The family of this 98-nucleotide RNA from Sebaldella termitidis is "Purine riboswitch aptamer". About the family: Riboswitches are metabolite binding domains within certain messenger RNAs that serve as precision sensors for their corresponding targets. NCBI's taxonomy places the organism under Bacteria, Fusobacteriati, Fusobacteriota, Leptotrichiaceae, Sebaldella termitidis. Rfam links the family to the GO term purine nucleobase biosynthetic process.
RNA sequence: UAUAAUUAUGAAAAAGUUAACCAUAUAAUCUUGAAAUAAGGUCAAGAGUUUCUACAAACUGCCGAUAACAGUUUACUAUGGGGCAGUUUUAGAUUUAU
Numbered sequence: 001u002a003u004a005a006u007u008a009u010g011a012a013a014a015a016g017u018u019a020a021c022c023a024u025a026u027a028a029u030c031u032u033g034a035a036a037u038a039a040g041g042u043c044a045a046g047a048g049u050u051u052c053u054a055c056a057a058a059c060u061g062c063c064g065a066u067a068a069c070a071g072u073u074u075a076c077u078a079u080g081g082g083g084c085a086g087u088u089u090u091a092g093a094u095u096u097a098u
Stems, first nucleotide, its partner, number of pairs: 021081005029047006056074006